Rfam assigns this 86-nucleotide RNA sequence from Rhinolophus ferrumequinum to the family "Small nucleolar RNA SNORD86".
A search with the family's covariance model found it, with a score of 87 bits.
From the family's description: U86 belongs to the C/D family of snoRNAs. It is the human orthologue of Xenopus laevis U86 and has no identified RNA target.
NCBI's taxonomy places the organism under Eukaryota, Craniata, Rhinolophoidea, Rhinolophinae, Rhinolophus.
On this family, see Filippini et al., Biochem Biophys Res Commun 2001: "U86, a novel snoRNA with an unprecedented gene organization in yeast".
The family's consensus secondary structure was predicted with RNAalifold.
RNA sequence: AUUCCCAGCGAUGGCUGACCAGGGCUUCCUGACCUAUCCAGGCCUCUGCUGUGGGGGCGAUGGCCAGUCCUGGUGUCUGAGUGAUU
Numbered sequence: 001a002u003u004c005c006c007a008g009c010g011a012u013g014g015c016u017g018a019c020c021a022g023g024g025c026u027u028c029c030u031g032a033c034c035u036a037u038c039c040a041g042g043c044c045u046c047u048g049c050u051g052u053g054g055g056g057g058c059g060a061u062g063g064c065c066a067g068u069c070c071u072g073g074u075g076u077c078u079g080a081g082u083g084a085u086u
Stems, first nucleotide, its partner, number of pairs: 001086001003084002006081001010077003018074009027063002030060001033057003039053002041050003